skipping-rope RNA: a 93-nucleotide RNA. It is one of the family's seed sequences.
[Rfam]
RNA sequence: ACAGUCUGAGGACCGGAAAAUCUGCUGCCGGCCCGCCCGGUGAAAAGUCAUGGAAAAGGGCGCGAUGUGGGAGUGGCAGUCCCACCGGACUGU
Numbered sequence: 001a002c003a004g005u006c007u008g009a010g011g012a013c014c015g016g017a018a019a020a021u022c023u024g025c026u027g028c029c030g031g032c033c034c035g036c037c038c039g040g041u042g043a044a045a046a047g048u049c050a051u052g053g054a055a056a057a058g059g060g061c062g063c064g065a066u067g068u069g070g071g072a073g074u075g076g077c078a079g080u081c082c083c084a085c086c087g088g089a090c091u092g093u
Base pairs, nucleotide, nucleotide: 001093002092003091004090005089006088007087008086011032013031014030015029016028022079023078024077025076026075034062035061036060037059038058067085068084069083070082071081
By type it is a small RNA.